[Rfam]
Rfam assigns this 78-nucleotide sequence from Diceros bicornis to the family "mir-147 microRNA precursor family". Rfam links the family to the GO terms miRNA-mediated post-transcriptional gene silencing and RISC complex. NCBI's taxonomy places the organism under Eukaryota, Metazoa, Teleostomi, Mammalia, Diceros bicornis.

Nucleotides: 078
Stems, first nucleotide, its partner, number of pairs: 001078002004075004009070001011068001013066001015064002018061010029050001032049002
Number, partner (000 for none) and nucleotide at each position: 001078u002077a003000u004075g005074a006073a007072u008000c009070u010000u011068g012000a013066g014000g015064a016063a017000a018061c019060a020059u021058u022057u023056c024055u025054g026053c027052a028000c029050a030000a031000a032049c033048u034000a035000g036000a037000u038000u039000a040000u041000g042000g043000a044000u045000a046000c047000c048033a049032g050029u051000c052027u053026g054025c055024a056023g057022a058021a059020a060019u061018g062000c063016u064015u065000g066013u067000g068011c069000u070009a071000c072007g073006u074005u075004u076000u077002u078001a